[Rfam]
RNA sequence: AUGGAGAAUCUGUAAAGCUCAGGAGGGAUAGCGCCAUGGAUGACUCAAUUUGAUCUUUUUGCACAUCUCUAGCGCUAUCCAUCCUGAGUUUUACGGUUUUUCAC
Dot-bracket structure: .........(.....(((((((((.(((((((((.....................................))))))))).))))))))).....)........
Numbered sequence: 001a002u003g004g005a006g007a008a009u010c011u012g013u014a015a016a017g018c019u020c021a022g023g024a025g026g027g028a029u030a031g032c033g034c035c036a037u038g039g040a041u042g043a044c045u046c047a048a049u050u051u052g053a054u055c056u057u058u059u060u061g062c063a064c065a066u067c068u069c070u071a072g073c074g075c076u077a078u079c080c081a082u083c084c085u086g087a088g089u090u091u092u093a094c095g096g097u098u099u100u101u102c103a104c
Stems, first nucleotide, its partner, number of pairs: 010096001016090009026080009